[Rfam]
RNA: small nucleolar RNA snoR143
Organism: Carpinus fangiana
RNA sequence: UCCUAAACAGGUUUUGGAAACAAAACCUGCUUUUGGGAACUUGCAGGUGCAAUUGGGCAGCGGCCAGACAACCGUAGGGAUGGUUUCCACAGAUGACGGGUUUUGCUAUCUCGUUUUCAUCUACUAAAUCCCAUCUCACAUUU
Numbered sequence: 001u002c003c004u005a006a007a008c009a010g011g012u013u014u015u016g017g018a019a020a021c022a023a024a025a026c027c028u029g030c031u032u033u034u035g036g037g038a039a040c041u042u043g044c045a046g047g048u049g050c051a052a053u054u055g056g057g058c059a060g061c062g063g064c065c066a067g068a069c070a071a072c073c074g075u076a077g078g079g080a081u082g083g084u085u086u087c088c089a090c091a092g093a094u095g096a097c098g099g100g101u102u103u104u105g106c107u108a109u110c111u112c113g114u115u116u117u118c119a120u121c122u123a124c125u126a127a128a129u130c131c132c133a134u135c136u137c138a139c140a141u142u143u
Stems, first nucleotide, its partner, number of pairs: 002037003006033002008029009077137007095115006